[Rfam]
RNA: Small nucleolar RNA Z247
Organism: Populus alba
RNA sequence: CCACUCACAACUGAUGAUAUCAUCACCUACGUGCUAGCAGGACUUGGCUAGAAAUAUGAUUCUUUGGCUUCUAUCAUUACCUCUCGUUUAGAUUCUGUCACUCUUGAGGAACUCUACUCACUUCUUCUUAUCAGUGAAU
Numbered sequence: 001c002c003a004c005u006c007a008c009a010a011c012u013g014a015u016g017a018u019a020u021c022a023u024c025a026c027c028u029a030c031g032u033g034c035u036a037g038c039a040g041g042a043c044u045u046g047g048c049u050a051g052a053a054a055u056a057u058g059a060u061u062c063u064u065u066g067g068c069u070u071c072u073a074u075c076a077u078u079a080c081c082u083c084u085c086g087u088u089u090a091g092a093u094u095c096u097g098u099c100a101c102u103c104u105u106g107a108g109g110a111a112c113u114c115u116a117c118u119c120a121c122u123u124c125u126u127c128u129u130a131u132c133a134g135u136g137a138a139u
Base pairs, nucleotide, nucleotide: 005137006136007135008134088108089107091105092104